[Rfam]
Shown here is a 77-nucleotide RNA from Salinisphaera orenii, a member of the family "Proteo-phage-1 RNA".
The match comes from Rfam's covariance-model search (51 bits).
RNA sequence: CCGUCGCCCGGGCGAAAGCUCUUAGGACGGACACGGAUUAGUCGGUGAGUGCCGUGCAUGACAAAACCCCGACGGCC
Number, nucleotide and partner (000 for none) at each position: 001c030002c029003g028004u027005c026006g000007c000008c000009c000010g000011g020012g019013c018014g000015a000016a000017a000018g013019c012020u011021c000022u000023u000024a000025g000026g005027a004028c003029g002030g001031a000032c056033a055034c054035g053036g052037a000038u000039u000040a000041g073042u072043c071044g070045g069046u000047g000048a000049g000050u000051g000052c036053c035054g034055u033056g032057c000058a000059u000060g000061a000062c000063a000064a000065a000066a000067c000068c000069c045070c044071g043072a042073c041074g000075g000076c000077c000